[Rfam]
Background
The record is a 143-nucleotide RNA from Vibrio mediterranei, which matches "DABA-DC-AT RNA" in Rfam.
RNA sequence: GCAAUCUCGGAAUGAAUCUGGGGGAGACGCGUUGUGACCAUUCAAGCUGAUUGUGACACAACGUAGGGUAGGUACUGGUUAUGCCAAUAACCAGUAGACGGGAUACUGAUGCCUAGAAGGGCAUGUUAAUGGGAAACCCAACA
Numbered sequence: 001g002c003a004a005u006c007u008c009g010g011a012a013u014g015a016a017u018c019u020g021g022g023g024g025a026g027a028c029g030c031g032u033u034g035u036g037a038c039c040a041u042u043c044a045a046g047c048u049g050a051u052u053g054u055g056a057c058a059c060a061a062c063g064u065a066g067g068g069u070a071g072g073u074a075c076u077g078g079u080u081a082u083g084c085c086a087a088u089a090a091c092c093a094g095u096a097g098a099c100g101g102g103a104u105a106c107u108g109a110u111g112c113c114u115a116g117a118a119g120g121g122c123a124u125g126u127u128a129a130u131g132g133g134a135a136a137c138c139c140a141a142c143a
Stems, first nucleotide, its partner, number of pairs: 006022006029064008039053002073096010110123005
Pairs were carried over by alignment from the consensus structure, which is taken from published work. It is one of the family's seed sequences.